[Rfam]
RNA sequence: GGCACAAAUUCUAUGUAGAGUAGUUUAGUAGGGUCUGAUGAUCCUCCUAAUCCACUCUACUUCAAAUUUGGGUCC
Numbered sequence: 001g002g003c004a005c006a007a008a009u010u011c012u013a014u015g016u017a018g019a020g021u022a023g024u025u026u027a028g029u030a031g032g033g034u035c036u037g038a039u040g041a042u043c044c045u046c047c048u049a050a051u052c053c054a055c056u057c058u059a060c061u062u063c064a065a066a067u068u069u070g071g072g073u074c075c
Base pairs, nucleotide, nucleotide: 001074002073003072005070006069007068008067009066013062015060016059017058018057019056020055021054023052025050026049027048028047030045032043033042034041035040

This 75-nucleotide RNA sequence from Haemonchus placei belongs to the Rfam family "mir-5928 microRNA precursor family".
The source organism's lineage runs through Eukaryota, Nematoda, Rhabditina, Strongyloidea and Haemonchus.
A search with the family's covariance model found it, with a score of 60 bits.
Gene Ontology terms of the family: miRNA-mediated post-transcriptional gene silencing and RISC complex.